The record is an 83-nucleotide RNA sequence from Glycine max, which matches "Small nucleolar RNA U54" in Rfam. The family has 21 seed sequences and 614 matches in Rfam 15.1. Its Rfam clan is "U54 clan". Rfam links the family to the GO terms RNA processing and nucleolus. The source organism's lineage runs through Eukaryota, Streptophyta, Embryophyta, Glycine and Glycine subgen. Soja. U54 is a C/D box small nucleolar RNA, which acts as a methylation guide for 18S ribosomal RNA in plants. Pairs were carried over by alignment from the consensus structure, which was predicted with PFOLD.

RNA sequence: GGCUCAGUGAUUUUCUGCCAUUGUUGCAGUAUACGCUAUUCCGACUCAAUAUGUGAGUAGAGAUAUCAUCAUAGAUGAGAGCC
Numbered sequence: 001g002g003c004u005c006a007g008u009g010a011u012u013u014u015c016u017g018c019c020a021u022u023g024u025u026g027c028a029g030u031a032u033a034c035g036c037u038a039u040u041c042c043g044a045c046u047c048a049a050u051a052u053g054u055g056a057g058u059a060g061a062g063a064u065a066u067c068a069u070c071a072u073a074g075a076u077g078a079g080a081g082c083c
Stems, first nucleotide, its partner, number of pairs: 001083005